Lysine riboswitch aptamer: a 176-nucleotide sequence from Sporosarcina sp. P19. The family's consensus secondary structure is taken from published work. A search with the family's covariance model found it, with a score of 122 bits. Riboswitches are metabolite binding domains within certain messenger RNAs that serve as precision sensors for their corresponding targets.

[Rfam]
RNA sequence: GACUUACGUAGAGGCUGCAUUGUUUAUGAGUACCUAGCGAGAGAGUGACAUCUAUGACCGCGAGCGAAAGGAGGCAAUGCCGAAGUUUGAGAAGAGUCCGCUUCUCAAGUUGGGGUCAUUUCGAAAAGGAAUGACACUGUCAUACACUGAUAAAUGUAUGGAGAGCUACAGUAGCC
Numbered sequence: 001g002a003c004u005u006a007c008g009u010a011g012a013g014g015c016u017g018c019a020u021u022g023u024u025u026a027u028g029a030g031u032a033c034c035u036a037g038c039g040a041g042a043g044a045g046u047g048a049c050a051u052c053u054a055u056g057a058c059c060g061c062g063a064g065c066g067a068a069a070g071g072a073g074g075c076a077a078u079g080c081c082g083a084a085g086u087u088u089g090a091g092a093a094g095a096g097u098c099c100g101c102u103u104c105u106c107a108a109g110u111u112g113g114g115g116u117c118a119u120u121u122c123g124a125a126a127a128g129g130a131a132u133g134a135c136a137c138u139g140u141c142a143u144a145c146a147c148u149g150a151u152a153a154a155u156g157u158a159u160g161g162a163g164a165g166c167u168a169c170a171g172u173a174g175c176c
Base pairs, nucleotide, nucleotide: 008169009168010167011166017080018079019078020077021076022075023074024073025072034064035063037061038060039059084111085110086109087108088107089106090105091104092103093102094101112138113137115135116134117133118132119131120130121129122128140161141160142159143158144157145156146155